[Rfam]
RNA: ybhL leader
Organism: Agrobacterium fabrum
Nucleotides: 068
Stems, first nucleotide, its partner, number of pairs: 013065007023049003030043004
Number, partner (000 for none) and nucleotide at each position: 001000u002000a003000g004000g005000c006000u007000u008000g009000c010000u011000g012000a013065a014064g015063c016062u017061c018060c019059g020000c021000a022000g023049c024048g025047g026000c027000g028000c029000c030043c031042g032041g033040g034000a035000g036000g037000u038000a039000u040033c041032c042031c043030g044000a045000c046000a047025c048024c049023g050000u051000a052000g053000c054000a055000a056000u057000c058000a059019c060018g061017g062016a063015g064014c065013u066000c067000a068000a